RNA sequence: GAUAAUGCGGAUGAGAAAUCCGCACACCGAAAGACUAAGGAUUCCUCCGCUAUGCUAAUCAACGGAGGGUUAGGCGGGGCCUAAGGUACAGCCGACAGGCGACUACCGAUGGACAGCAGGUUAAUAUUCCUGCCCUUGCAAUGAGUGUGAAAUAGUGACGGAGUGCCGUGGAUGGUACGUACUGACGGAAUAGUGCGUUGAGCAGAGCCUACGGGCGAAGCGAAUCAUCGAAGAUACUUCCAAGAAAAGCUAUUGAAACAUCAGCUUAUUGCAACCCGUACCGUAAACCGACACAGGUAGUCGAGAAGAAUAUUCUAAGGUGCU
Numbered sequence: 001g002a003u004a005a006u007g008c009g010g011a012u013g014a015g016a017a018a019u020c021c022g023c024a025c026a027c028c029g030a031a032a033g034a035c036u037a038a039g040g041a042u043u044c045c046u047c048c049g050c051u052a053u054g055c056u057a058a059u060c061a062a063c064g065g066a067g068g069g070u071u072a073g074g075c076g077g078g079g080c081c082u083a084a085g086g087u088a089c090a091g092c093c094g095a096c097a098g099g100c101g102a103c104u105a106c107c108g109a110u111g112g113a114c115a116g117c118a119g120g121u122u123a124a125u126a127u128u129c130c131u132g133c134c135c136u137u138g139c140a141a142u143g144a145g146u147g148u149g150a151a152a153u154a155g156u157g158a159c160g161g162a163g164u165g166c167c168g169u170g171g172a173u174g175g176u177a178c179g180u181a182c183u184g185a186c187g188g189a190a191u192a193g194u195g196c197g198u199u200g201a202g203c204a205g206a207g208c209c210u211a212c213g214g215g216c217g218a219a220g221c222g223a224a225u226c227a228u229c230g231a232a233g234a235u236a237c238u239u240c241c242a243a244g245a246a247a248a249g250c251u252a253u254u255g256a257a258a259c260a261u262c263a264g265c266u267u268a269u270u271g272c273a274a275c276c277c278g279u280a281c282c283g284u285a286a287a288c289c290g291a292c293a294c295a296g297g298u299a300g301u302c303g304a305g306a307a308g309a310a311u312a313u314u315c316u317a318a319g320g321u322g323c324u
Base pairs, nucleotide, nucleotide: 006024007023008022009021010020011019025322026321027320028319033302034301035300036299039282040281044068045067046066047065048064049063053061054060075278076277077276078275080112081111085107086106087105091100092099093098116133117132118131119130120129136274137273138272139271140270141269142268143267144266145265146264147259148258151254152253153252154251155250156249160240161239162238163237166233171229172228173227174226175225177198178197179196180195181194182193288297289296304316305315306314307313
This 324-nucleotide part of an RNA from Dyadobacter helix belongs to the Rfam family "Bacterial large subunit ribosomal RNA". Gene Ontology terms of the family: structural constituent of ribosome and ribosome. A reference for the family is Yusupov et al. (2001), "Crystal structure of the ribosome at 5.5 A resolution", Science.